[Rfam]
This 80-nucleotide RNA from Crocodylus porosus belongs to the Rfam family "Mammalian CPEB3 ribozyme". The mammalian CPEB3 ribozyme is a self cleaving RNA located in the second intron of the CPEB3 gene which belongs to a family of genes regulating messenger RNA polyadenylation. This ribozyme is highly conserved and found only in mammals. The CPEB3 ribozyme is structurally and biochemically related to the human hepatitis delta virus (HDV) ribozyme and the HDV ribozyme is proposed to have arisen from the human transcriptome. There is currently only one other known self cleaving ribozyme in mammals, the CoTC motif. The source organism's lineage runs through Eukaryota, Eumetazoa, Sarcopterygii, Archosauria and Crocodylus.
RNA sequence: AGAGGUCACAAAUUUGCGGCUGCAUCAGAAGUGCUCACAGCGCAGCCUGUCAGAUUGCAAUGAAAUCUGCAAAUUCUGCU
Numbered sequence: 001a002g003a004g005g006u007c008a009c010a011a012a013u014u015u016g017c018g019g020c021u022g023c024a025u026c027a028g029a030a031g032u033g034c035u036c037a038c039a040g041c042g043c044a045g046c047c048u049g050u051c052a053g054a055u056u057g058c059a060a061u062g063a064a065a066u067c068u069g070c071a072a073a074u075u076c077u078g079c080u
Stems, first nucleotide, its partner, number of pairs: 018047004024080001026078005031043003051069006